[Rfam]
RNA sequence: CAGUCGUGAAUUUGUAAGUCGCUCUCGAUAAGAGCGUCUGCUAAAUGACUUAAA
Numbered sequence: 001c002a003g004u005c006g007u008g009a010a011u012u013u014g015u016a017a018g019u020c021g022c023u024c025u026c027g028a029u030a031a032g033a034g035c036g037u038c039u040g041c042u043a044a045a046u047g048a049c050u051u052a053a054a
Base pairs, nucleotide, nucleotide: 013043014041015040016039020036021035022034023033024032025031
This 54-nucleotide sequence from Salmo trutta belongs to the Rfam family "UnaL2 LINE 3' element". The match comes from Rfam's covariance-model search (61 bits). The eel long interspersed element (LINE) UnaL2 and its partner short interspersed element (SINE) share a conserved 3' tail containing a stem-loop that is critical for their retrotransposition. Presumably, the first step of retrotransposition is the recognition of their 3' tails by UnaL2-encoded reverse transcriptase. The solution structure of a 17-nucleotide RNA derived from the 3' tail of UnaL2 was determined by NMR. The base pairs follow the family's consensus structure, which is taken from published work.